The family of this 109-nucleotide sequence is "Streptomyces RNA 4115". Pairs were carried over by alignment from the consensus structure. About the family: Identified by deep sequencing of transcriptome at the end of exponential growth phase. Sequencing size consistent with notrthern blot size. The family's RNA type in Rfam is small RNA.

RNA sequence: GCGUGGGUCGGCCCGCUGCGUGGAUCCGGCGGGCCGGGGGACACCGCCGCCUCAAUCCCCGCGGGUGGCGGAACGGUCCGGGGGGCGGUCCGCCGCCCCCCGGACCGCA
Numbered sequence: 001g002c003g004u005g006g007g008u009c010g011g012c013c014c015g016c017u018g019c020g021u022g023g024a025u026c027c028g029g030c031g032g033g034c035c036g037g038g039g040g041a042c043a044c045c046g047c048c049g050c051c052u053c054a055a056u057c058c059c060c061g062c063g064g065g066u067g068g069c070g071g072a073a074c075g076g077u078c079c080g081g082g083g084g085g086c087g088g089u090c091c092g093c094c095g096c097c098c099c100c101c102g103g104a105c106c107g108c109a
Stems, first nucleotide, its partner, number of pairs: 001108002006074001008072001009036010037042001044071009075106013